A member of the RNA family "ROOL RNA", 573 nucleotides long. From the family's description: Firmicutes, Fusobacteria (1 example), Tenericutes (1 example). The base pairs follow the family's consensus structure, which is taken from published work.
RNA sequence: CUCUUUCUUAUGGCGAUGAAUACCUCGGUGCAGAACGGCCAGUCACCGUGCCGAGAUUGUACGUACAGCGAGAUAUUAUAUGAUGGGAUACUUUCACAUGGUAUCUUCUGAAACAUAGUGAUAUGUUUUGGAUAGGUGGGAACCACCAAAGCUAAGUAUAAGUGCAAAAAAAUAUUGCCGUAAAAAGUUACUGCCAGAUUGCCAACAUAAUAGACGCUGCUGUGCAGAAUAAUCUUGAUGCCUAUAUGGGUGGAACCAUGUAGGAUUGUAGAGAAAAUCCACUAAGUUGGUUGUGUCGUUGAAUUGCAGAAAUGCAGGUAUAAAAUCUGUUCAGUGUACAAGUAGCCCAAAUCGACAUUGAAACUAUAUUUUACUAAUAGAUUAAAAAAAUAAUAAGUUCUGAAUGACGGGUGAAAGUUCAAAGUAACCAAUCUUUGCUACAAUUAUUGCUUAUGCAAACGACAAAGAAGUAUUAGGGUAGCUCCCUUAUGCUCAGACUUUGUUGAGUAGUGGCUGAAUAUUAUGACGAUAUUUUGAUGUAAGGCGAAGGCCUAUUUUGUUGCCAUAAUAAAG
Dot-bracket structure: ........(...(..(.(((...(((((......((((.......)))).))))).((((((........((((((.((.(((.((....)).))).)).))))))(((((((((((....)))))))))))..(((((...)))))........))))))........(((...(......(..((..((((.((((((((((((..........((((...)))).....((((.(..((((.(((..[[[[..))).))))....).))))...]]]]....))))))..[[[[[.....(((((....)))))......))))))..))))...(.....((((....]]]]].........................................[[[[......))))....)..(.(((.........))).(((......(.........)..(.(..(((..(.((.((((.....)))).))..)]]]].)))..)..))))..).).....))......)...)))......((((....))))..)))..)..)...).....